[Rfam]
RNA sequence: AUAAUGAUACUUUCGGGGAUGGCUGCUCCGGUCUGAAAAGAUGGUGAGAUUCCAAUGU
Numbered sequence: 001a002u003a004a005u006g007a008u009a010c011u012u013u014c015g016g017g018g019a020u021g022g023c024u025g026c027u028c029c030g031g032u033c034u035g036a037a038a039a040g041a042u043g044g045u046g047a048g049a050u051u052c053c054a055a056u057g058u
Base pairs, nucleotide, nucleotide: 012055013031014030015029016028017027018026032041033040034039042054043053044052